[Rfam]
RNA sequence: CGUCUCCUCCAUGUCUCCUCCUGAUAUGGAUUCACCCGCUCCCUGUGAGCGGGUUUUUUUU
Dot-bracket structure: .......((((((((.......))))))))...((((((((.....)))))))).......
Rfam assigns this 61-nucleotide sequence from Trinickia soli to the family "Betaproteobacteria toxic small RNA".
The organism belongs to Trinickia, within Bacteria.
The literature on the family includes a 2012 paper in Genome Res by Kimelman et al., "A vast collection of microbial genes that are toxic to bacteria".
The base pairs follow the family's consensus structure, which was predicted with WAR.
Overexpression in amino aid rich medium attenuates growth, suggesting role in repressing amino acid intake and metabolism.